[Rfam]
RNA sequence: AUUUAAAAAUUUAAUAGCCCUCAUAUAAUAUUGGGAAUAUGGCCCAUAAGUUUCUACCCAGCAACCGUAAAUUGCAGGACUAUGAGGGAAAGUGAAUGAUGC
Numbered sequence: 001a002u003u004u005a006a007a008a009a010u011u012u013a014a015u016a017g018c019c020c021u022c023a024u025a026u027a028a029u030a031u032u033g034g035g036a037a038u039a040u041g042g043c044c045c046a047u048a049a050g051u052u053u054c055u056a057c058c059c060a061g062c063a064a065c066c067g068u069a070a071a072u073u074g075c076a077g078g079a080c081u082a083u084g085a086g087g088g089a090a091a092g093u094g095a096a097u098g099a100u101g102c
Stems, first nucleotide, its partner, number of pairs: 018088008029049001032046004058078002061075004
RNA: Purine riboswitch aptamer